Shown here is a 100-nucleotide sequence, a member of the family "DUF3800-V RNA".
The sequence is in the family's curated seed alignment.
RNA sequence: UCCCAGUGAGCGGUAAGUCCACUCUAGGGCGUCCACAGUGCUUCCAUCCAUCGGUUGGCAUGAGCUGUGGCACAGAAGGCCUAGAGGGCACGCUCUUUUU
Numbered sequence: 001u002c003c004c005a006g007u008g009a010g011c012g013g014u015a016a017g018u019c020c021a022c023u024c025u026a027g028g029g030c031g032u033c034c035a036c037a038g039u040g041c042u043u044c045c046a047u048c049c050a051u052c053g054g055u056u057g058g059c060a061u062g063a064g065c066u067g068u069g070g071c072a073c074a075g076a077a078g079g080c081c082u083a084g085a086g087g088g089c090a091c092g093c094u095c096u097u098u099u100u
Stems, first nucleotide, its partner, number of pairs: 005096002010093002025083004030078001032077001033070007044058003048054002
Dot-bracket structure: ....((...((.............((((.(.((((((((....(((.((...)).))).....)))))))......)).))))........)).))....